[Rfam]
Nucleotides: 102
Base pairs, nucleotide, nucleotide: 018088019087020086022084023083024082025081029049030048031047032046033045034044058078059077060076061075062074063073064072
Number, partner (000 for none) and nucleotide at each position: 001000g002000a003000g004000a005000a006000a007000c008000a009000g010000a011000a012000u013000a014000u015000a016000c017000c018088c019087c020086u021000u022084c023083a024082u025081a026000u027000a028000u029049g030048u031047u032046c033045g034044a035000u036000a037000a038000u039000a040000u041000g042000g043000u044034u045033c046032g047031a048030a049029u050000g051000u052000u053000u054000c055000u056000a057000c058078c059077a060076a061075a062074u063073c064072a065000c066000c067000u068000u069000a070000a071000a072064u073063g074062a075061u076060u077059u078058g079000a080000c081025u082024a083023u084022g085000c086020a087019g088018g089000c090000g091000g092000u093000c094000u095000u096000u097000u098000u099000u100000a101000g102000g
Rfam assigns this 102-nucleotide RNA from Jeotgalibacillus campisalis to the family "Purine riboswitch aptamer". About the family: Riboswitches are metabolite binding domains within certain messenger RNAs that serve as precision sensors for their corresponding targets. Allosteric rearrangement of mRNA structure is mediated by ligand binding, and this results in modulation of gene expression. A class of riboswitches that selectively recognises guanine and becomes saturated at concentrations as low as 5 nM. In Bacillus subtilis, this mRNA motif is located on at least five separate transcriptional units that together encode 17 genes that are mostly involved in purine transport and purine nucleotide biosynthesis. It has also been shown that some members of this family are specific for adenine instead. NCBI's taxonomy places the organism under Bacteria, Bacillati, Caryophanales, Caryophanaceae, Jeotgalibacillus. Gene Ontology term of the family: purine nucleobase biosynthetic process. A reference for the family is Mandal et al. (2003), "Riboswitches Control Fundamental Biochemical Pathways in Bacillus subtilis and Other Bacteria", Cell.